[Rfam]
RNA sequence: GGGGCUGAACGGUUUCGACUUUGUACGUUGAGUCAGGGGAAGCGUGUCGGUGCAGGCAAGAGACCACCGUAAGCGUCGCUGCAAACAUAUAAGCGCCGAUUCCAAUCAGCGCGACUACGCUCUCGCUGCCUAAGUAGCGAAGCGUGUCUGUCAGUCCGAUCUCGCCCUCGGGUCGGGUACUGGCAUCAGCUAGAGGGCUUUACCUACCGGCUCGGUCGCGGAGUCGGAUGGGACAUCAAACAGUGACUGGGAUCGUCAUCACGGCUUGUUCGCGAGACCGGGAGAUCCAAGUAGAGGCAUAGCGAACUGCACACGGAGAAGCCCUGGCGAUUCGGCGAAGGACCCGGGUUCAAUUCCCGGCAGCUCCACCG
Numbered sequence: 001g002g003g004g005c006u007g008a009a010c011g012g013u014u015u016c017g018a019c020u021u022u023g024u025a026c027g028u029u030g031a032g033u034c035a036g037g038g039g040a041a042g043c044g045u046g047u048c049g050g051u052g053c054a055g056g057c058a059a060g061a062g063a064c065c066a067c068c069g070u071a072a073g074c075g076u077c078g079c080u081g082c083a084a085a086c087a088u089a090u091a092a093g094c095g096c097c098g099a100u101u102c103c104a105a106u107c108a109g110c111g112c113g114a115c116u117a118c119g120c121u122c123u124c125g126c127u128g129c130c131u132a133a134g135u136a137g138c139g140a141a142g143c144g145u146g147u148c149u150g151u152c153a154g155u156c157c158g159a160u161c162u163c164g165c166c167c168u169c170g171g172g173u174c175g176g177g178u179a180c181u182g183g184c185a186u187c188a189g190c191u192a193g194a195g196g197g198c199u200u201u202a203c204c205u206a207c208c209g210g211c212u213c214g215g216u217c218g219c220g221g222a223g224u225c226g227g228a229u230g231g232g233a234c235a236u237c238a239a240a241c242a243g244u245g246a247c248u249g250g251g252a253u254c255g256u257c258a259u260c261a262c263g264g265c266u267u268g269u270u271c272g273c274g275a276g277a278c279c280g281g282g283a284g285a286u287c288c289a290a291g292u293a294g295a296g297g298c299a300u301a302g303c304g305a306a307c308u309g310c311a312c313a314c315g316g317a318g319a320a321g322c323c324c325u326g327g328c329g330a331u332u333c334g335g336c337g338a339a340g341g342a343c344c345c346g347g348g349u350u351c352a353a354u355u356c357c358c359g360g361c362a363g364c365u366c367c368a369c370c371g
Base pairs, nucleotide, nucleotide: 001367002366003365004364005363006362007361019340020339021338022337023336024335027332032328033327034326035325036324037323038322043315044314045313046312047311048069049068050067051066052065056082057081058080123140124139125138126137127136128135129134149185150184151183152182153181154180155177156176157175158174159173160172161171162170164198165197166196167195168194169193203231204230207227208226209225210224211223214248215247216246217245218244219243250288251287252286253285254284256282257281259280263279264278268307269306270305271304276300344360345359346358347357348356

Rfam assigns this 371-nucleotide sequence from Rhodococcus spelaei to the family "transfer-messenger RNA". By type it is a non-coding RNA gene. From the family's description: Bacterial tmRNA, also known as 10Sa RNA or SsrA, is named for its dual tRNA and mRNA-like properties. Lineage of the source: Bacteria > Bacillati > Actinomycetes > Mycobacteriales > Rhodococcus. On this family, see Williams and Bartel, RNA 1996: "Phylogenetic analysis of tmRNA secondary structure". Pairs were carried over by alignment from the consensus structure, which is taken from published work.